Potassium channel RNA editing signal: a 114-nucleotide sequence from Hydatigera taeniaeformis. It is annotated as a cis-regulatory element. Pairs were carried over by alignment from the consensus structure, which is taken from published work. A search with the family's covariance model found it, with a score of 76 bits.
[Rfam]
RNA sequence: UUUAGGUACGGCGAUAUUGUUCCGGUCACGGUGAUGGGGAAAAUUUUUGGAGGCAUUUGCUCACUUUCUGGCGUUCUCGUCAUAGCCCUUCCCGUGCCUGUCAUUGUCUCCAAU
Numbered sequence: 001u002u003u004a005g006g007u008a009c010g011g012c013g014a015u016a017u018u019g020u021u022c023c024g025g026u027c028a029c030g031g032u033g034a035u036g037g038g039g040a041a042a043a044u045u046u047u048u049g050g051a052g053g054c055a056u057u058u059g060c061u062c063a064c065u066u067u068c069u070g071g072c073g074u075u076c077u078c079g080u081c082a083u084a085g086c087c088c089u090u091c092c093c094g095u096g097c098c099u100g101u102c103a104u105u106g107u108c109u110c111c112a113a114u
Base pairs, nucleotide, nucleotide: 002113005110008107009106010105011104013102014101015100016099019097020096022094037077038076039075040074050062051061